The family of this 375-nucleotide sequence from Secundilactobacillus malefermentans is "Bacterial RNase P class B". A search with the family's covariance model found it, with a score of 322 bits. Lineage of the source: Bacteria > Bacillota > Bacilli > Lactobacillales > Secundilactobacillus. On this family, see Brown, Nucleic Acids Res 1999: "The Ribonuclease P Database".

RNA sequence: AACUUCGGGUAAUUGCGGUCGGCUUAUGUCGGCUGAGGAAAGUCCAUGCUCGCACAAGCUGCGAUGCUUGUAGUGUUCGUGCUCGGUGAAAAAAUAAGCCGGGGAAUCUGUAAAGAUUACGGCAAAAGAAAGAGCUAAGGUCUCUGACUAUGCUUGAGUAUUUUUGAAAGUGCCACAGCGACGAUGACGGUGUUGGAAACAGCAGCGGUGGAACGCGGUAAACCCCACGAGCGGGCAACCCAAACUACGGUAGGGGCGCUUCACAUAUGGAAAUGAACGAAAUGUGGGGGGAGAGUUUAUACUCUCGAGAUAGAUGAUUACCGCCUGAUUGAAAUUCCUGAAUUUUGAUUAAGGCACAAAACAUGGCUUACAGAG
Numbered sequence: 001a002a003c004u005u006c007g008g009g010u011a012a013u014u015g016c017g018g019u020c021g022g023c024u025u026a027u028g029u030c031g032g033c034u035g036a037g038g039a040a041a042g043u044c045c046a047u048g049c050u051c052g053c054a055c056a057a058g059c060u061g062c063g064a065u066g067c068u069u070g071u072a073g074u075g076u077u078c079g080u081g082c083u084c085g086g087u088g089a090a091a092a093a094a095u096a097a098g099c100c101g102g103g104g105a106a107u108c109u110g111u112a113a114a115g116a117u118u119a120c121g122g123c124a125a126a127a128g129a130a131a132g133a134g135c136u137a138a139g140g141u142c143u144c145u146g147a148c149u150a151u152g153c154u155u156g157a158g159u160a161u162u163u164u165u166g167a168a169a170g171u172g173c174c175a176c177a178g179c180g181a182c183g184a185u186g187a188c189g190g191u192g193u194u195g196g197a198a199a200c201a202g203c204a205g206c207g208g209u210g211g212a213a214c215g216c217g218g219u220a221a222a223c224c225c226c227a228c229g230a231g232c233g234g235g236c237a238a239c240c241c242a243a244a245c246u247a248c249g250g251u252a253g254g255g256g257c258g259c260u261u262c263a264c265a266u267a268u269g270g271a272a273a274u275g276a277a278c279g280a281a282a283u284g285u286g287g288g289g290g291g292a293g294a295g296u297u298u299a300u301a302c303u304c305u306c307g308a309g310a311u312a313g314a315u316g317a318u319u320a321c322c323g324c325c326u327g328a329u330u331g332a333a334a335u336u337c338c339u340g341a342a343u344u345u346u347g348a349u350u351a352a353g354g355c356a357c358a359a360a361a362c363a364u365g366g367c368u369u370a371c372a373g374a375g
Stems, first nucleotide, its partner, number of pairs: 004375003007371001008322007016035006040369003044366005049235005054071006077230005082103006104120001105118005121225002124164004132155004139149003170223002172219003188207002191204005239255003259289007291306005324354003328350001330348001332346003